[Rfam]
RNA sequence: UUGACUUCUAAAUGAGAAUUGUUAUGAUUAUCACAUCUGGUCGCGAGGCCAGUGAUGAUUUGAAAGACCUUGGUUCGGACUCUCAGAUUAUCUCCUCAUCAGGCUAAUCACGGUUAUUGACCCGGCACUUUGCCGGGUCUUUUUUUG
Numbered sequence: 001u002u003g004a005c006u007u008c009u010a011a012a013u014g015a016g017a018a019u020u021g022u023u024a025u026g027a028u029u030a031u032c033a034c035a036u037c038u039g040g041u042c043g044c045g046a047g048g049c050c051a052g053u054g055a056u057g058a059u060u061u062g063a064a065a066g067a068c069c070u071u072g073g074u075u076c077g078g079a080c081u082c083u084c085a086g087a088u089u090a091u092c093u094c095c096u097c098a099u100c101a102g103g104c105u106a107a108u109c110a111c112g113g114u115u116a117u118u119g120a121c122c123c124g125g126c127a128c129u130u131u132g133c134c135g136g137g138u139c140u141u142u143u144u145u146u147g
Base pairs, nucleotide, nucleotide: 034054035053037052038051039050040049041048042047060086061085062084063083065081066080068077094103095102096101119139120138121137122136123135124134125133126132
A member of the RNA family "PrrF RNA" from Pseudomonas sp. M47T1, 147 nucleotides long. Rfam links the family to the GO term sRNA-mediated gene silencing. PrrF RNA is a small RNA involved in iron homeostasis and is found exclusively in Pseudomonas species. A search with the family's covariance model found it, with a score of 151 bits.